[Rfam]
RNA sequence: AUGACCUUUAAUUACAGUCCCGUGAGGCUGAAAAGGAAUCGGUAAAUACUACAUUUGUGUAGGUAUAUCCAAAACCCUUUUCUUCUGACGGAGAAAAGGGUUUUUUUACU
Numbered sequence: 001a002u003g004a005c006c007u008u009u010a011a012u013u014a015c016a017g018u019c020c021c022g023u024g025a026g027g028c029u030g031a032a033a034a035g036g037a038a039u040c041g042g043u044a045a046a047u048a049c050u051a052c053a054u055u056u057g058u059g060u061a062g063g064u065a066u067a068u069c070c071a072a073a074a075c076c077c078u079u080u081u082c083u084u085c086u087g088a089c090g091g092a093g094a095a096a097a098g099g100g101u102u103u104u105u106u107u108a109c110u
Stems, first nucleotide, its partner, number of pairs: 005036005015030005045066001049062005071104015

This 110-nucleotide RNA sequence from Paraliobacillus sp. PM-2 belongs to the Rfam family "PyrR binding site".
It is annotated as a cis-regulatory element.
It scores 66 bits against the family's covariance model.